[Rfam]
RNA sequence: GGCCUUCCGGUGCUUACCACAAUCUGUGUUCUUACGCUGAAUGUAGAGGAAGAGGAGGCAAAAGUAAAUCUACCCCAUAUAUACAGCCCAGGCCCUGUGUCUGGUCUGGAUUGAGAAUAGGAAGACAUGG
Numbered sequence: 001g002g003c004c005u006u007c008c009g010g011u012g013c014u015u016a017c018c019a020c021a022a023u024c025u026g027u028g029u030u031c032u033u034a035c036g037c038u039g040a041a042u043g044u045a046g047a048g049g050a051a052g053a054g055g056a057g058g059c060a061a062a063a064g065u066a067a068a069u070c071u072a073c074c075c076c077a078u079a080u081a082u083a084c085a086g087c088c089c090a091g092g093c094c095c096u097g098u099g100u101c102u103g104g105u106c107u108g109g110a111u112u113g114a115g116a117a118u119a120g121g122a123a124g125a126c127a128u129g130g
Base pairs, nucleotide, nucleotide: 002059003058004057005056006055007054020043021042026037027036028035029034074121075120077118078117084108085107086106088104089103090102091101092100093099
Small nucleolar RNA SNORA51: a 130-nucleotide RNA from Castor canadensis. ACA51 is a member of the H/ACA class of snoRNA that guide the sites of modification of uridines to pseudouridines. Its family is annotated with RNA processing and nucleolus in the Gene Ontology. Pairs were carried over by alignment from the consensus structure, which was predicted with PFOLD.